The record is a 144-nucleotide RNA sequence from Lysinibacillus halotolerans, which matches "Ribosomal protein L10 leader" in Rfam. This family is a putative r-protein leader autoregulatory structure found in B. subtilis and other low-GC Gram-positive bacteria. It is located in the 5' untranslated regions of mRNAs encoding ribosomal proteins L10 and L12 (rplJ-rplL). Rfam links the family to the GO term regulation of gene expression. It is annotated as a cis-regulatory leader.
RNA sequence: UGUGAAUAUCCAUUUGUACCGUAGACAGUAGGGGUGCUUGCACUUAAUUAUCCUACCGAGGACAUCGAAAUCGGAUUCUUUUUUAGAUGAUGAAUUUUCCGCCUCUAGUCUACUCUAUUGACUAGAGGCUUUUCUUUUGUCGGU
Numbered sequence: 001u002g003u004g005a006a007u008a009u010c011c012a013u014u015u016g017u018a019c020c021g022u023a024g025a026c027a028g029u030a031g032g033g034g035u036g037c038u039u040g041c042a043c044u045u046a047a048u049u050a051u052c053c054u055a056c057c058g059a060g061g062a063c064a065u066c067g068a069a070a071u072c073g074g075a076u077u078c079u080u081u082u083u084u085a086g087a088u089g090a091u092g093a094a095u096u097u098u099c100c101g102c103c104u105c106u107a108g109u110c111u112a113c114u115c116u117a118u119u120g121a122c123u124a125g126a127g128g129c130u131u132u133u134c135u136u137u138u139g140u141c142g143g144u
Base pairs, nucleotide, nucleotide: 028056029055030054031053032052033051034043035042036041101129102128103127104126105125106124107123108122109121110120